[Rfam]
RNA sequence: CUGUUUUGUGGACAUUAACAUGUCCGCGUAGGCAUAAUGUACCAAGACAUAUUAUGUAUAUCGUACAUUAAUUGAUAGUCCCCAUGAAUAUUAAGUA
Numbered sequence: 001c002u003g004u005u006u007u008g009u010g011g012a013c014a015u016u017a018a019c020a021u022g023u024c025c026g027c028g029u030a031g032g033c034a035u036a037a038u039g040u041a042c043c044a045a046g047a048c049a050u051a052u053u054a055u056g057u058a059u060a061u062c063g064u065a066c067a068u069u070a071a072u073u074g075a076u077a078g079u080c081c082c083c084a085u086g087a088a089u090a091u092u093a094a095g096u097a
Stems, first nucleotide, its partner, number of pairs: 005088006011080002015075004022027001028048002031043002054068005
RNA: Mitochondrial DNA control region secondary structure A